[Rfam]
RNA sequence: AGUUUAAUAUAAGCGCCAGGACUAAAGCUCCACCGAACAAAUCAUAGAUUUUUUGGAUGGGUAAGGAAUCUCCGCCUACGGUGGAGAAAGCUCCAUAGGCCAAAUCAUAGAUUUUUUGGAUGGGUAAGGAAUCUCCGCUUACAGCGGAGAAAGCUCCACCAACCAAAUCGAAGAUUUUUGGAAGGACAAAUGAAUCUCCGCCUACGGUGGAGAAAGCUCCACCAACCAAAUCUUAGAUUUGGGGUGUCGCUUUAGUUGACGAGGAUGAGGAUUAUCGAGAUUUCGGCGGGUGCCUCACGGUAUAGCACUAUCGUAAAGAAUUAUAAAACUAGAAAGUGAUUUCUAGCACAACAUAAUUUAGGUGUUAAA
Number, nucleotide and partner (000 for none) at each position: 001a000002g000003u000004u000005u000006a000007a000008u000009a000010u000011a000012a000013g000014c000015g000016c000017c000018a000019g000020g257021a256022c255023u254024a253025a252026a251027g250028c249029u000030c000031c000032a000033c000034c000035g000036a000037a000038c000039a000040a000041a000042u000043c000044a000045u000046a000047g000048a000049u000050u000051u000052u000053u000054u000055g000056g000057a000058u000059g000060g000061g000062u000063a000064a000065g000066g000067a000068a000069u000070c000071u000072c000073c000074g000075c000076c000077u000078a000079c000080g000081g000082u000083g000084g000085a000086g000087a000088a000089a000090g000091c000092u000093c000094c000095a000096u000097a000098g000099g000100c000101c000102a000103a000104a000105u000106c000107a000108u000109a000110g000111a000112u000113u000114u000115u000116u000117u000118g000119g000120a000121u000122g000123g000124g000125u000126a000127a000128g000129g000130a000131a000132u000133c000134u000135c000136c000137g000138c000139u000140u000141a000142c000143a000144g000145c000146g000147g000148a000149g000150a000151a000152a000153g000154c000155u000156c000157c000158a000159c000160c000161a000162a000163c000164c000165a000166a000167a000168u000169c000170g000171a000172a000173g000174a000175u000176u000177u000178u000179u000180g000181g000182a000183a000184g000185g000186a000187c000188a000189a000190a000191u000192g000193a000194a000195u000196c000197u000198c000199c000200g000201c000202c000203u000204a000205c000206g000207g000208u000209g000210g000211a000212g000213a000214a000215a000216g000217c000218u000219c000220c000221a000222c000223c000224a000225a000226c000227c000228a000229a000230a000231u000232c000233u000234u000235a000236g000237a000238u000239u000240u000241g000242g000243g000244g000245u000246g000247u000248c000249g028250c027251u026252u025253u024254a023255g022256u021257u020258g000259a000260c000261g000262a000263g000264g000265a000266u297267g296268a295269g294270g293271a000272u000273u000274a000275u286276c285277g284278a283279g000280a000281u000282u000283u278284c277285g276286g275287c000288g000289g000290g000291u000292g000293c270294c269295u268296c267297a266298c313299g312300g311301u310302a309303u000304a000305g000306c000307a000308c000309u302310a301311u300312c299313g298314u000315a000316a000317a000318g359319a358320a357321u356322u355323a000324u000325a000326a000327a000328a000329c346330u345331a344332g343333a342334a341335a340336g000337u000338g000339a000340u335341u334342u333343c332344u331345a330346g329347c000348a000349c000350a000351a000352c000353a000354u000355a322356a321357u320358u319359u318360a000361g000362g000363u000364g000365u000366u000367a000368a000369a000
About this RNA
Shown here is a 369-nucleotide sequence from Clostridium putrefaciens, a member of the family "glmS glucosamine-6-phosphate activated ribozyme aptamer". Rfam's curators write: This entry contains a glucosamine-6-phosphate activated ribozyme that is found in the mRNA for GlmS. GlmS is an enzyme that uses fructose-6-phosphate and glutamine to generate glucosamine-6-phosphate. By type it is a riboswitch.